Rfam assigns this 217-nucleotide sequence from Cebus imitator to the family "Small nucleolar RNA U3". Rfam links the family to the GO terms RNA processing and nucleolus. By type it is a C/D-box small nucleolar RNA. Small nucleolar RNAs (snoRNAs) are involved in the processing and modification of rRNA in the nucleolus. There are two main classes of snoRNAs: the box C/D class, and the box H/ACA class. U3 snoRNA is a member of the box C/D class. Indeed, the box C/D element is a subset of the six short sequence elements found in all U3 snoRNAs, namely boxes A, A', B, C, C', and D. The U3 snoRNA secondary structure is characterised by a small 5' domain (with boxes A and A'), and a larger 3' domain (with boxes B, C, C', and D), the two domains being linked by a single-stranded hinge. Pairs were carried over by alignment from the consensus structure, which is taken from published work. Clan: U3 clan.
Nucleotides: 217
Stems, first nucleotide, its partner, number of pairs: 002040002005037001006035001009032003015027004049065002054061001075217005094205012108166003118154003124148004128143005169191002172188006
Number, partner (000 for none) and nucleotide at each position: 001000a002040a003039g004000a005037c006035u007000a008000u009032a010031c011030u012000u013000u014000c015027a016026g017025g018024g019000a020000u021000c022000a023000u024018u025017u026016c027015u028000a029000u030011a031010g032009u033000u034000c035006g036000u037005g038000a039003c040002u041000a042000g043000a044000g045000a046000a047000g048000u049065u050064u051000c052000u053000c054061u055000g056000a057000a058000c059000g060000u061054g062000u063000a064050g065049a066000g067000c068000a069000c070000c071000g072000g073000a074000a075217a076216c077215c078214a079213c080000g081000a082000g083000g084000a085000g086000g087000a088000g089000g090000c091000a092000c093000a094205g095204c096203g097202u098201u099200u100199u101198c102197u103196c104195c105194u106000g107000a108166g109165c110164g111000u112000g113000a114000a115000g116000u117000u118154g119153g120152u121000u122000u123000u124148u125147g126146g127145u128143g129142u130141u131140g132139c133000u134000u135000u136000g137000c138000g139132g140131c141130g142129a143128c144000u145127g146126c147125c148124a149000u150000u151000u152120a153119c154118c155000g156000u157000u158000g159000a160000u161000g162000a163000u164110c165109g166108u167000u168000c169191u170190c171000u172188u173187u174186c175185u176184c177183c178000u179000u180000c181000c182000u183177g184176g185175a186174g187173a188172a189000u190170g191169a192000g193000a194105g195104g196103g197102a198101g199100a200099a201098a202097a203096c204095g205094c206000a207000g208000u209000c210000u211000g212000a213079g214078u215077g216076g217075u